This 355-nucleotide part of an RNA from uncultured Acidobacteriales bacterium HF0200_23L05 belongs to the Rfam family "Bacterial small subunit ribosomal RNA". Clan: SSU clan. The sequence is in the family's curated seed alignment. The family has 99 seed sequences and 42,628 matches in Rfam 15.1. Pairs were carried over by alignment from the consensus structure, which is taken from published work.
RNA sequence: GGCGUAAAGGGCUUGUAGGCGGUGGUCUAUGUCGGUUGUGAAAUCCCCAGGCUCAACCUGGGAACUGCAGCCGAAACUGGGUCACUAGAAGCCGGGAGAGGGAUGCGGAAUUCCAGGUGUAGCGGUGAAAUGCGUAGAUAUCUGGAGGAACACCCGUGGCGAAGGCGGCAUCCUGGACCGGUCUUGACGCUGAGGAGCGAAAGCUAGGGUAGCAAACGGGAUUAGAUACCCCGGUAGUCCUAGCCCUAAACGAUGAAUGCUUGGUGUGGCGGGUAUCGAUCCCUGCCGUGCCGGAGUUAACGCGUUAAGCAUUCCGCCUGGGGAGUACGGUCGCAAGGCUGAAACUCAAAGGAAU
Numbered sequence: 001g002g003c004g005u006a007a008a009g010g011g012c013u014u015g016u017a018g019g020c021g022g023u024g025g026u027c028u029a030u031g032u033c034g035g036u037u038g039u040g041a042a043a044u045c046c047c048c049a050g051g052c053u054c055a056a057c058c059u060g061g062g063a064a065c066u067g068c069a070g071c072c073g074a075a076a077c078u079g080g081g082u083c084a085c086u087a088g089a090a091g092c093c094g095g096g097a098g099a100g101g102g103a104u105g106c107g108g109a110a111u112u113c114c115a116g117g118u119g120u121a122g123c124g125g126u127g128a129a130a131u132g133c134g135u136a137g138a139u140a141u142c143u144g145g146a147g148g149a150a151c152a153c154c155c156g157u158g159g160c161g162a163a164g165g166c167g168g169c170a171u172c173c174u175g176g177a178c179c180g181g182u183c184u185u186g187a188c189g190c191u192g193a194g195g196a197g198c199g200a201a202a203g204c205u206a207g208g209g210u211a212g213c214a215a216a217c218g219g220g221a222u223u224a225g226a227u228a229c230c231c232c233g234g235u236a237g238u239c240c241u242a243g244c245c246c247u248a249a250a251c252g253a254u255g256a257a258u259g260c261u262u263g264g265u266g267u268g269g270c271g272g273g274u275a276u277c278g279a280u281c282c283c284u285g286c287c288g289u290g291c292c293g294g295a296g297u298u299a300a301c302g303c304g305u306u307a308a309g310c311a312u313u314c315c316g317c318c319u320g321g322g323g324a325g326u327a328c329g330g331u332c333g334c335a336a337g338g339c340u341g342a343a344a345c346u347c348a349a350a351g352g353a354a355u
Base pairs, nucleotide, nucleotide: 001318002317003316009315011198012197013196014195016192018191019190020189022085023084024083025082026081027080028079031077032074033073034072035071036070037069038068039067040066046062047061048060049059050058051057089185090184091183092181093180094179095178100174101173102172103171104170105169106168107151111147112146113145114144115143116142117141118140122133123132124131159166160165203244204243205242206241207240208239212238213237217233218232219231220230255314256313257312258311259310260309263292264291265290266289267288268287269286270285271284272283273282296303297302320347321346322345329340330339331338332337